A member of the RNA family "sRNA-Xcc1" from Candidatus Regiella insecticola, 94 nucleotides long.
[Rfam]
RNA sequence: GGUCGGGUAGCGAGCAGUUAUACAAUACCUCUAUCCGAAGGGGGAAACCUGCUGGCCGUCUACUUGCGGUGUUCAAGUGCCCGAUCGCCCAUCU
Numbered sequence: 001g002g003u004c005g006g007g008u009a010g011c012g013a014g015c016a017g018u019u020a021u022a023c024a025a026u027a028c029c030u031c032u033a034u035c036c037g038a039a040g041g042g043g044g045a046a047a048c049c050u051g052c053u054g055g056c057c058g059u060c061u062a063c064u065u066g067c068g069g070u071g072u073u074c075a076a077g078u079g080c081c082c083g084a085u086c087g088c089c090c091a092u093c094u
Stems, first nucleotide, its partner, number of pairs: 001086009013053004019047001028043005055070005

It scores 68 bits against the family's covariance model.